[Rfam]
The record is a 115-nucleotide RNA from Rosa chinensis, which matches "Small nucleolar RNA snoR104" in Rfam.
It is annotated as an H/ACA-box small nucleolar RNA.
Its family is annotated with RNA processing and nucleolus in the Gene Ontology.
The family has 8 seed sequences and 612 matches in Rfam 15.1.
On this family, see Marker et al., Curr Biol 2002: "Experimental RNomics: identification of 140 candidates for small non-messenger RNAs in the plant Arabidopsis thaliana".
Taxonomically the source falls in Rosa (Eukaryota, Spermatophyta, eudicotyledons, Rosoideae).

RNA sequence: AGGGAGCAUCCAAAAGAUGGGAUGUUAACUGAUACCUUCCUACAGAAAACCUCUAGUAUUUCCUGCUUGCAGUAUUUGAGCAAUAUCUAGAAGUCUCUGAUUCUUAGAGAAAUGA
Number, nucleotide and partner (000 for none) at each position: 001a030002g029003g000004g000005a026006g025007c024008a023009u022010c021011c020012a000013a000014a000015a000016g000017a000018u000019g000020g011021g010022a009023u008024g007025u006026u005027a000028a000029c002030u001031g000032a000033u000034a000035c000036c000037u000038u000039c000040c000041u000042a000043c000044a000045g000046a000047a000048a000049a000050c000051c000052u108053c107054u106055a000056g000057u000058a000059u000060u000061u000062c000063c000064u000065g094066c093067u092068u091069g000070c000071a088072g087073u000074a000075u000076u083077u000078g000079a000080g000081c000082a000083a076084u000085a000086u000087c072088u071089a000090g000091a068092a067093g066094u065095c000096u000097c000098u000099g000100a000101u000102u000103c000104u000105u000106a054107g053108a052109g000110a000111a000112a000113u000114g000115a000